[Rfam]
RNA: c-di-AMP riboswitch aptamer (ydaO/yuaA leader)
Organism: Paenibacillus sp. PvR098
RNA sequence: AAUUUUUAAAAGCCGAAUCGUAUAGCCUAUUUUGUGUACGUACGGGGGACUGAGCAAUUGGGGUGAAUGCUUGCAGGCAUGACUGCUGCGCGCUAGGGAACAACCUCUUCCCGAACCCGACAACUAACCUCGGAGGCAUGAACAGGAGGAAUA
Dot-bracket structure: ...........(((....((((((..........))))))..(((((....(......).(((.....((.(((((.........))))).))..((((.........))))...))).........)))))..)))................